The record is a 114-nucleotide sequence from Williamsia sp. 1138, which matches "SAM (S-adenosyl methionine) riboswitch aptamer" in Rfam.
Rfam 15.1 lists 2,360 matches to the family in 1,305 species.
A search with the family's covariance model found it, with a score of 110 bits.
Lineage of the source: Bacteria > Actinomycetota > Actinomycetes > Nocardiaceae > Williamsia.
Rfam describes the family as follows. SAM-IV is a mRNA element that regulates gene expression via direct sensing of S-adenosylmethionine (SAM or AdoMet). SAM-IV riboswitches share conserved nucleotide positions with the previously described SAM-I riboswitches sequence analysis and molecular recognition experiments suggest that SAM-I and SAM-IV riboswitches share similar ligand binding sites, but have different scaffolds.

[Rfam]
RNA sequence: GGUCACGAGUAUCAGCGCACAGCCCCGGCUUGCUGAUCGGCAACCCUCCACCGCGGCGGGGUGCUCCGGGUGAUGACCUGGCCGGCUGGAACCCUCAGUCGGCAAGCGCGGACC
Numbered sequence: 001g002g003u004c005a006c007g008a009g010u011a012u013c014a015g016c017g018c019a020c021a022g023c024c025c026c027g028g029c030u031u032g033c034u035g036a037u038c039g040g041c042a043a044c045c046c047u048c049c050a051c052c053g054c055g056g057c058g059g060g061g062u063g064c065u066c067c068g069g070g071u072g073a074u075g076a077c078c079u080g081g082c083c084g085g086c087u088g089g090a091a092c093c094c095u096c097a098g099u100c101g102g103c104a105a106g107c108g109c110g111g112a113c114c
Base pairs, nucleotide, nucleotide: 001078002077003076004075009038011037012036013035014034015033016032021030022029039065040064041063044061045060046059048056049055081103082102083101084100085099086098087097088096089095